Shown here is a 71-nucleotide sequence from Brassica oleracea, a member of the family "tRNA". Rfam classes the family as a transfer RNA. The match comes from Rfam's covariance-model search (56 bits). NCBI's taxonomy places the organism under Eukaryota, Embryophyta, Euphyllophyta, rosids, Brassica oleracea.

RNA sequence: AAGAGUAUAAUUUAAUGGUAAAAUAGGAAGCUUCAACCUUCAAUUUUUCAGUUCGAGUCUGAAUACUCUUG
Numbered sequence: 001a002a003g004a005g006u007a008u009a010a011u012u013u014a015a016u017g018g019u020a021a022a023a024u025a026g027g028a029a030g031c032u033u034c035a036a037c038c039u040u041c042a043a044u045u046u047u048u049c050a051g052u053u054c055g056a057g058u059c060u061g062a063a064u065a066c067u068c069u070u071g
Base pairs, nucleotide, nucleotide: 001070002069003068004067005066006065007064010024011023012022013021027041028040029039030038047063048062049061050060051059